[Rfam]
RNA sequence: UCUAGAACUUGAUAUAUGGACUGAACAUUGAACAGUGUAUGGGCUGCAGGACCAAUUCUGACUUCUUUUUUGUUGCUACAAUUUGAACUUAAAACGGUCGUUUUGAAUCUUGAACUCUUCAUGAAAGCUUUAGGCCUAUAUCUUAUCUUUCCAUC
Numbered sequence: 001u002c003u004a005g006a007a008c009u010u011g012a013u014a015u016a017u018g019g020a021c022u023g024a025a026c027a028u029u030g031a032a033c034a035g036u037g038u039a040u041g042g043g044c045u046g047c048a049g050g051a052c053c054a055a056u057u058c059u060g061a062c063u064u065c066u067u068u069u070u071u072g073u074u075g076c077u078a079c080a081a082u083u084u085g086a087a088c089u090u091a092a093a094a095c096g097g098u099c100g101u102u103u104u105g106a107a108u109c110u111u112g113a114a115c116u117c118u119u120c121a122u123g124a125a126a127g128c129u130u131u132a133g134g135c136c137u138a139u140a141u142c143u144u145a146u147c148u149u150u151c152c153a154u155c
Base pairs, nucleotide, nucleotide: 003153005151006150007149009145011144012143014141015140016139017138018137019136021133022132023131024130025129028127029126035122036121037120041118042117043116045114048111049110050109051108054104055103058100060098062097063096068092069091072088073087074086
RNA: MIR2912 microRNA precursor family
Organism: Populus deltoides